[Rfam]
Nucleotides: 142
Base pairs, nucleotide, nucleotide: 028060029059030058031057032056033055034043035042036041102127103126104125105124106123107122108121109120110119111118
Number, partner (000 for none) and nucleotide at each position: 001000g002000u003000g004000g005000a006000u007000u008000g009000c010000a011000u012000a013000u014000a015000a016000u017000g018000g019000c020000c021000g022000a023000a024000g025000a026000c027000a028060g029059c030058a031057g032056g033055u034043g035042c036041c037000g038000c039000a040000a041036g042035g043034c044000g045000u046000a047000a048000u049000c050000a051000u052000a053000g054000a055033g056032c057031c058030u059029g060028c061000c062000g063000a064000g065000g066000g067000a068000c069000u070000u071000u072000c073000a074000u075000g076000a077000g078000c079000a080000a081000u082000c083000a084000u085000u086000g087000a088000g089000a090000a091000u092000g093000a094000g095000a096000u097000u098000c099000u100000g101000a102127u103126c104125c105124c106123u107122c108121u109120c110119u111118g112000u113000c114000c115000a116000g117000g118111c119110a120109g121108a122107g123106a124105g125104g126103g127102a128000u129000u130000u131000u132000u133000a134000u135000a136000u137000c138000c139000u140000u141000u142000c